Rfam assigns this 59-nucleotide RNA from Ornithinimicrobium cerasi to the family "msiK RNA". Taxonomically the source falls in Ornithinimicrobium (Bacteria, Actinomycetota, Micrococcales, Ornithinimicrobiaceae). The family's RNA type in Rfam is cis-regulatory element.

RNA sequence: GCGGGGCAUCCUUUACGACGGAUCGUCCGGCACGUACCUGCCGGUGAAGGAGCAGAACA
Numbered sequence: 001g002c003g004g005g006g007c008a009u010c011c012u013u014u015a016c017g018a019c020g021g022a023u024c025g026u027c028c029g030g031c032a033c034g035u036a037c038c039u040g041c042c043g044g045u046g047a048a049g050g051a052g053c054a055g056a057a058c059a
Base pairs, nucleotide, nucleotide: 009051010050011049012048013047014046015045027044028043029042030041031040032039